Rfam assigns this 81-nucleotide RNA sequence from Miscanthus lutarioriparius to the family "small nucleolar RNA snoR117". The literature on the family includes a 2009 paper in Nucleic Acids Res by Chen and Wu, "Mining small RNA sequencing data: a new approach to identify small nucleolar RNAs in Arabidopsis". NCBI's taxonomy places the organism under Eukaryota, Tracheophyta, Poales, Poaceae, Miscanthus. By type it is a C/D-box small nucleolar RNA.

RNA sequence: GGCCAAUGACUUGAAUUAAUUGUCCGUACCAUCUGAGGCCUAGCAACCGCUGGUCUAUUGAUGCACUUUUCUCUGAGGCCU
Numbered sequence: 001g002g003c004c005a006a007u008g009a010c011u012u013g014a015a016u017u018a019a020u021u022g023u024c025c026g027u028a029c030c031a032u033c034u035g036a037g038g039c040c041u042a043g044c045a046a047c048c049g050c051u052g053g054u055c056u057a058u059u060g061a062u063g064c065a066c067u068u069u070u071c072u073c074u075g076a077g078g079c080c081u
Stems, first nucleotide, its partner, number of pairs: 001080004